[Rfam]
RNA sequence: CGGGAUGUAGUUCAGCGAGAGAGUGCUUGCUUUGCAUGCAAGAGGCCCUGGGAUCAACCCCCAGCAUCUCCA
Numbered sequence: 001c002g003g004g005a006u007g008u009a010g011u012u013c014a015g016c017g018a019g020a021g022a023g024u025g026c027u028u029g030c031u032u033u034g035c036a037u038g039c040a041a042g043a044g045g046c047c048c049u050g051g052g053a054u055c056a057a058c059c060c061c062c063a064g065c066a067u068c069u070c071c072a
Stems, first nucleotide, its partner, number of pairs: 002070006010024004026042005048064005

Record summary
Rfam assigns this 72-nucleotide RNA from Sylvia borin to the family "tRNA". Lineage of the source: Eukaryota > Gnathostomata > Euteleostomi > Sarcopterygii > Sylvia.